RNA: L31-Firmicutes ribosomal protein leader
RNA sequence: CUAUGGACUUAUUUUGGUUCAUGGCAAAGGAG
Numbered sequence: 001c002u003a004u005g006g007a008c009u010u011a012u013u014u015u016g017g018u019u020c021a022u023g024g025c026a027a028a029g030g031a032g
Stems, first nucleotide, its partner, number of pairs: 001024008